[Rfam]
Shown here is a 180-nucleotide RNA sequence from Acanthochromis polyacanthus, a member of the family "Small nucleolar RNA SNORA81". The family's RNA type in Rfam is H/ACA-box small nucleolar RNA. On this family, see Gu et al., Nucleic Acids Res 2005: "A novel experimental approach for systematic identification of box H/ACA snoRNAs from eukaryotes".

RNA sequence: CCCUUCUGCAUUAACAGAUGUCUGCUAAAAUUGUGCGAUCCAGAUAUUCUGUUUCAUGCAAUAAUGCUAGCAGACUUUCACGUGGAAGGAGAUUAUAGUGCACUGUACUGAAAAUGAGACGCGGUCGAACCUCUUUCUUAAUGUUCGUUGGUUGCUGUCUCAAGGUGAAGUGCCACAGUC
Numbered sequence: 001c002c003c004u005u006c007u008g009c010a011u012u013a014a015c016a017g018a019u020g021u022c023u024g025c026u027a028a029a030a031u032u033g034u035g036c037g038a039u040c041c042a043g044a045u046a047u048u049c050u051g052u053u054u055c056a057u058g059c060a061a062u063a064a065u066g067c068u069a070g071c072a073g074a075c076u077u078u079c080a081c082g083u084g085g086a087a088g089g090a091g092a093u094u095a096u097a098g099u100g101c102a103c104u105g106u107a108c109u110g111a112a113a114a115u116g117a118g119a120c121g122c123g124g125u126c127g128a129a130c131c132u133c134u135u136u137c138u139u140a141a142u143g144u145u146c147g148u149u150g151g152u153u154g155c156u157g158u159c160u161c162a163a164g165g166u167g168a169a170g171u172g173c174c175a176c177a178g179u180c
Base pairs, nucleotide, nucleotide: 020075021074023072024071025070026069027068030065031064032063033062037055038052041051042050043049044048100173101172102171103170104169106167107166122151124149126147127146128145129144

The base pairs follow the family's consensus structure, which was predicted with WAR. The match comes from Rfam's covariance-model search (79 bits).